The family of this 130-nucleotide RNA sequence from Gymnodraco acuticeps is "Small nucleolar RNA SNORA77". Its family is annotated with nucleolus and RNA processing in the Gene Ontology. ACA63 (SNORA77) is a member of the H/ACA class of snoRNAs that guide the sites of modification of uridines to pseudouridines. This snoRNA was identified by computational screening and its expression in mouse experimentally verified by Northern blot and primer extension analysis. ACA63 is proposed to guide the pseudouridylation of 18S rRNA U814. Pairs were carried over by alignment from the consensus structure, which was predicted with RNAalifold. A reference for the family is Schattner et al. (2006), "A computational screen for mammalian pseudouridylation guide H/ACA RNAs", RNA. NCBI's taxonomy places the organism under Eukaryota, Gnathostomata, Actinopterygii, Teleostei, Gymnodraco.
[Rfam]
RNA sequence: GCAGACUCACUCUGUUCUUUGCUGUUCACUCCGGCCUAGAACUUUUUUCUGACUGCUAGAUAACCGCGCAGAACGUAGUACUCUACCUGCUUUCUGAUAAGCUGGUGUCAGUACGUUCUGCUACAUUACU
Numbered sequence: 001g002c003a004g005a006c007u008c009a010c011u012c013u014g015u016u017c018u019u020u021g022c023u024g025u026u027c028a029c030u031c032c033g034g035c036c037u038a039g040a041a042c043u044u045u046u047u048u049c050u051g052a053c054u055g056c057u058a059g060a061u062a063a064c065c066g067c068g069c070a071g072a073a074c075g076u077a078g079u080a081c082u083c084u085a086c087c088u089g090c091u092u093u094c095u096g097a098u099a100a101g102c103u104g105g106u107g108u109c110a111g112u113a114c115g116u117u118c119u120g121c122u123a124c125a126u127u128a129c130u
Stems, first nucleotide, its partner, number of pairs: 001056004006051001014042005022034003068121010079110001083107001